About this RNA:
Rfam assigns this 123-nucleotide RNA from Apium graveolens to the family "mir-166 microRNA precursor family". NCBI's taxonomy places the organism under Eukaryota, Viridiplantae, Streptophytina, Mesangiospermae, Apium.

[Rfam]
RNA sequence: UUUGUGGGGAAUGUUGGCUGGCUCGAUGCAUUCACCCUUGUGAUGAUUAAGAUUUUAUGUGAUGUAUCCAAAUGCACAAAACAAUGUUGUGAAGGCAUCAGACCAGGCUUCAUUCCUCUCAAA
Numbered sequence: 001u002u003u004g005u006g007g008g009g010a011a012u013g014u015u016g017g018c019u020g021g022c023u024c025g026a027u028g029c030a031u032u033c034a035c036c037c038u039u040g041u042g043a044u045g046a047u048u049a050a051g052a053u054u055u056u057a058u059g060u061g062a063u064g065u066a067u068c069c070a071a072a073u074g075c076a077c078a079a080a081a082c083a084a085u086g087u088u089g090u091g092a093a094g095g096c097a098u099c100a101g102a103c104c105a106g107g108c109u110u111c112a113u114u115c116c117u118c119u120c121a122a123a
Base pairs, nucleotide, nucleotide: 001123002122003121004120006118007117008116009115010114011113012112013111016108018106019105020104021103025099026098027097028096029095
It scores 63 bits against the family's covariance model.
On this family, see Reinhart et al., Genes Dev 2002: "MicroRNAs in plants".
This family represents the plant microRNA (miRNA) precursor mir-166.